About this RNA
Rfam assigns this 188-nucleotide RNA from Trichonephila clavata to the family "Wolbachia sRNA 46". By type it is a small RNA. A search with the family's covariance model found it, with a score of 82 bits.

RNA sequence: UUUUGGCCCAUCAGGAGGGUGUCAUCCCAGUGCGUGACACUGGGAUCCAGGAAUUUUAAUUGUAAGUAAGCAUACUGAGUUGGUAAGUAUAAAAGUAGCUAGAAAAUAAACAUUUUUGAUGAUAUUAUAUGGAAAACUGGAUUCCAGUGUCAAGCACUGGAAUGAUAAGAAGAGGGUACUUGGAUAAG
Numbered sequence: 001u002u003u004u005g006g007c008c009c010a011u012c013a014g015g016a017g018g019g020u021g022u023c024a025u026c027c028c029a030g031u032g033c034g035u036g037a038c039a040c041u042g043g044g045a046u047c048c049a050g051g052a053a054u055u056u057u058a059a060u061u062g063u064a065a066g067u068a069a070g071c072a073u074a075c076u077g078a079g080u081u082g083g084u085a086a087g088u089a090u091a092a093a094a095g096u097a098g099c100u101a102g103a104a105a106a107u108a109a110a111c112a113u114u115u116u117u118g119a120u121g122a123u124a125u126u127a128u129a130u131g132g133a134a135a136a137c138u139g140g141a142u143u144c145c146a147g148u149g150u151c152a153a154g155c156a157c158u159g160g161a162a163u164g165a166u167a168a169g170a171a172g173a174g175g176g177u178a179c180u181u182g183g184a185u186a187a188g
Base pairs, nucleotide, nucleotide: 011183012182013181014180015179020167021166022165023164024163025162027160028159029158030157031156032155033154035152036151037150038149039148040147041146042145043144044143045142046141047140048139049138050137